[Rfam]
RNA: RNase MRP
Organism: Chlorella variabilis
RNA sequence: ACGCAGCGCGAAGGGCCACCUCAGCAAACCCUCGCUUCUCGCGCCUCACCAAUGCCAAACUGCUGGGCGAAAGUCCCCGGGCACCCAGGCAGAAAGUGCCAACCCGAAAGGGUAGGACCCCCGCUCGCCCCUGCCGUCCGCCUUGGCGGCGGCAGCGUCGGCGGCGGGGCAGCUCGCCAUAACCACAGUUAUGUGGCCGGCCGCGGCUGUUGCCUUCGGGCGGCAGCCGUGCGUCAACACAACGGGGCUUACUCUCGCGCUGACG
Numbered sequence: 001a002c003g004c005a006g007c008g009c010g011a012a013g014g015g016c017c018a019c020c021u022c023a024g025c026a027a028a029c030c031c032u033c034g035c036u037u038c039u040c041g042c043g044c045c046u047c048a049c050c051a052a053u054g055c056c057a058a059a060c061u062g063c064u065g066g067g068c069g070a071a072a073g074u075c076c077c078c079g080g081g082c083a084c085c086c087a088g089g090c091a092g093a094a095a096g097u098g099c100c101a102a103c104c105c106g107a108a109a110g111g112g113u114a115g116g117a118c119c120c121c122c123g124c125u126c127g128c129c130c131c132u133g134c135c136g137u138c139c140g141c142c143u144u145g146g147c148g149g150c151g152g153c154a155g156c157g158u159c160g161g162c163g164g165c166g167g168g169g170c171a172g173c174u175c176g177c178c179a180u181a182a183c184c185a186c187a188g189u190u191a192u193g194u195g196g197c198c199g200g201c202c203g204c205g206g207c208u209g210u211u212g213c214c215u216u217c218g219g220g221c222g223g224c225a226g227c228c229g230u231g232c233g234u235c236a237a238c239a240c241a242a243c244g245g246g247g248c249u250u251a252c253u254c255u256c257g258c259g260c261u262g263a264c265g
Stems, first nucleotide, its partner, number of pairs: 002265002004262008014198006021067002023064004071250003075247004088100004102113004115170001121164005127158002130155001138152005200234002202231012